[Rfam]
RNA sequence: CCCUGGUGCCCUUCAUUCCACCGGAAUCCGUCCAUAAGGAACCCGGAUUUCAGUGAAAUGAAGCCCCUCAGAGA
Numbered sequence: 001c002c003c004u005g006g007u008g009c010c011c012u013u014c015a016u017u018c019c020a021c022c023g024g025a026a027u028c029c030g031u032c033c034a035u036a037a038g039g040a041a042c043c044c045g046g047a048u049u050u051c052a053g054u055g056a057a058a059u060g061a062a063g064c065c066c067c068u069c070a071g072a073g074a
Stems, first nucleotide, its partner, number of pairs: 011063006019055003023051004028046003
Rfam assigns this 74-nucleotide sequence from Thryothorus ludovicianus to the family "mir-205 microRNA precursor family".
Rfam links the family to the GO terms RISC complex and miRNA-mediated post-transcriptional gene silencing.
NCBI's taxonomy places the organism under Eukaryota, Sauria, Neoaves, Troglodytinae, Thryothorus.
The family's consensus secondary structure was predicted with RNAalifold.
For this family Rfam cites "Conservation of small RNA pathways in platypus" (Murchison et al., Genome Res, 2008).